[Rfam]
Nucleotides: 067
Base pairs, nucleotide, nucleotide: 005063006062007061009060010059011058012057013056014055015054016053019050020049021048022047023046025044026043027042028041
Number, partner (000 for none) and nucleotide at each position: 001000u002000u003000a004000g005063u006062a007061c008000u009060g010059u011058u012057g013056c014055u015054a016053a017000u018000a019050u020049g021048c022047a023046a024000c025044u026043c027042u028041g029000u030000c031000g032000g033000g034000u035000a036000a037000a038000c039000a040000u041028u042027g043026g044025a045000a046023u047022u048021g049020c050019a051000c052000u053016u054015u055014a056013g057012c058011a059010a060009u061007g062006u063005g064000c065000c066000a067000g

A member of the RNA family "mir-367 microRNA precursor family" from Odontophorus gujanensis, 67 nucleotides long. Its family is annotated with miRNA-mediated post-transcriptional gene silencing and RISC complex in the Gene Ontology. The base pairs follow the family's consensus structure, which was predicted with RNAalifold.